[Rfam]
Nucleotides: 111
Base pairs, nucleotide, nucleotide: 005107006106007105008104011101012100013099016096017095018094021091022090023089024088027085029083030082031081032080033079034078035077
Number, partner (000 for none) and nucleotide at each position: 001000g002000u003000g004000a005107g006106a007105a008104u009000c010000a011101c012100a013099g014000u015000a016096c017095a018094a019000u020000u021091c022090u023089c024088c025000u026000c027085u028000g029083g030082c031081a032080u033079g034078g035077a036000g037000g038000c039000u040000g041000c042000u043000g044000g045000u046000g047000g048000a049000u050000c051000u052000a053000g054000a055000u056000c057000u058000g059000u060000c061000a062000g063000u064000a065000a066000u067000g068000c069000u070000a071000c072000u073000g074000c075000c076000a077035u078034c079033c080032a081031u082030g083029c084000a085027a086000a087000a088024g089023g090022a091021g092000a093000u094018u095017u096016g097000c098000c099013c100012u101011g102000c103000c104008a105007u106006u107005c108000a109000a110000a111000a
The record is a 111-nucleotide sequence from Digitaria exilis, which matches "mir-399 microRNA precursor family" in Rfam. The source organism's lineage runs through Eukaryota, Viridiplantae, Spermatophyta, commelinids and Digitaria. About the family: mir-399 was identified in both Arabidopsis thaliana and Oryza sativa computationally and was later experimentally verified. mir-399 is thought to target mRNAs coding for a phosphatase transporter. The mature sequence is excised from the 3' arm of the hairpin. A reference for the family is Jones-Rhoades and Bartel (2004), "Computational Identification of Plant MicroRNAs and Their Targets, Including a Stress-Induced miRNA", Mol Cell. Rfam links the family to the GO terms miRNA-mediated post-transcriptional gene silencing and RISC complex. A search with the family's covariance model found it, with a score of 61 bits. The family's consensus secondary structure was predicted with PFOLD.